[Rfam]
RNA sequence: UUUUUGGUAGACCACUAGCGAGGUAUAGAGUUCCUACGUGAUUUUUCGGCUGUAGGAACUUCAUACCGUGCUCUUGGAUUUACCGAC
Numbered sequence: 001u002u003u004u005u006g007g008u009a010g011a012c013c014a015c016u017a018g019c020g021a022g023g024u025a026u027a028g029a030g031u032u033c034c035u036a037c038g039u040g041a042u043u044u045u046u047c048g049g050c051u052g053u054a055g056g057a058a059c060u061u062c063a064u065a066c067c068g069u070g071c072u073c074u075u076g077g078a079u080u081u082a083c084c085g086a087c
Stems, first nucleotide, its partner, number of pairs: 012077003017072004022067005028061010